[Rfam]
The record is an 81-nucleotide RNA sequence from Senna tora, which matches "Small nucleolar RNA R160" in Rfam. A search with the family's covariance model found it, with a score of 65 bits. The family's RNA type in Rfam is C/D-box small nucleolar RNA. The literature on the family includes a 2003 paper in Nucleic Acids Res by Chen et al., "The high diversity of snoRNAs in plants: identification and comparative study of 120 snoRNA genes from Oryza sativa". The organism belongs to Senna, within Eukaryota.
RNA sequence: AGCAAAAUGAUGAAAUCAUUUUAAUCUGAAAAUGAUGUGGAGUAUUUGUCUCGAAUAGGUCUUCAAAGUUCUCUGAUUGCU
Numbered sequence: 001a002g003c004a005a006a007a008u009g010a011u012g013a014a015a016u017c018a019u020u021u022u023a024a025u026c027u028g029a030a031a032a033u034g035a036u037g038u039g040g041a042g043u044a045u046u047u048g049u050c051u052c053g054a055a056u057a058g059g060u061c062u063u064c065a066a067a068g069u070u071c072u073c074u075g076a077u078u079g080c081u
Stems, first nucleotide, its partner, number of pairs: 001081005

snoR160 is a C/D box small nucleolar RNA, which acts as a methylation guide for 25S ribosomal RNA in plants. snoR160 has been alternatively named snoZ270 in rice.